[Rfam]
RNA: L31-Actinobacteria ribosomal protein leader
RNA sequence: CGACACCGGUUCACGGCGGCAUCCAUCCGGGGUGCCGACGACCCGGCGUC
Number, nucleotide and partner (000 for none) at each position: 001c000002g000003a000004c000005a049006c046007c045008g044009g043010u000011u000012c000013a000014c040015g039016g000017c037018g036019g035020c034021a033022u032023c031024c030025a000026u000027c000028c000029g000030g024031g023032g022033u021034g020035c019036c018037g017038a000039c015040g014041a000042c000043c009044c008045g007046g006047c000048g000049u005050c000